Shown here is an 87-nucleotide RNA sequence from Gossypium stocksii, a member of the family "MIR7486 microRNA precursor family". The family has 9 seed sequences and 10,132 matches in Rfam 15.1.
Nucleotides: 087
Base pairs, nucleotide, nucleotide: 001086002085003084004083005082006081007080008079009078010077011076012075013074014073015072016071018069019068020067021066023064024063026061027060028059029058030057031056032055033054035052036051037050038049040047041046
Number, partner (000 for none) and nucleotide at each position: 001086c002085u003084c004083a005082a006081g007080g008079a009078a010077g011076u012075g013074c014073u015072u016071u017000u018069u019068c020067c021066a022000c023064g024063u025000c026061a027060g028059c029058a030057c031056a032055a033054a034000a035052c036051g037050c038049g039000u040047c041046c042000u043000u044000g045000a046041g047040g048000g049038u050037g051036c052035g053000c054033u055032u056031u057030g058029u059028g060027c061026u062000a063024a064023c065000a066021u067020g068019g069018a070000u071016a072015a073014a074013g075012c076011g077010c078009u079008u080007c081006c082005u083004u084003g085002a086001g087000g